[Rfam]
A member of the RNA family "Alphaproteobacterial sRNA ar9" from Gillisella ampelina, 150 nucleotides long. Rfam classes the family as a small RNA. The source organism's lineage runs through Bacteria, Pseudomonadota, Alphaproteobacteria, Gillisella and Gillisella ampelina.
RNA sequence: ACAAAACAGGCAGAAAGCUUAAAUUUCUGCCGAUUUCGCGGUUAAAGUCUUGGGAGGAUCAGAUCUUAGGCGCGGUCAUUCGCAGCCCCUUAAUUGGUGAAAGGUCACGCGACAUUUCAAUAACAAGGUCUUCGGGCCUUGUUUUUUUUU
Numbered sequence: 001a002c003a004a005a006a007c008a009g010g011c012a013g014a015a016a017g018c019u020u021a022a023a024u025u026u027c028u029g030c031c032g033a034u035u036u037c038g039c040g041g042u043u044a045a046a047g048u049c050u051u052g053g054g055a056g057g058a059u060c061a062g063a064u065c066u067u068a069g070g071c072g073c074g075g076u077c078a079u080u081c082g083c084a085g086c087c088c089c090u091u092a093a094u095u096g097g098u099g100a101a102a103g104g105u106c107a108c109g110c111g112a113c114a115u116u117u118c119a120a121u122a123a124c125a126a127g128g129u130c131u132u133c134g135g136g137c138c139u140u141g142u143u144u145u146u147u148u149u150u
Base pairs, nucleotide, nucleotide: 003150004149005148006147011029012028013027014026015025016024037111038110039109040108047059048058049057050056062106063105064104065103066102069087070086071085072083073082074081088097089096122143123142124141125140126139127138128137129136
It is one of the family's seed sequences.
A reference for the family is del Val et al. (2012), "A survey of sRNA families in alpha-proteobacteria", RNA Biol.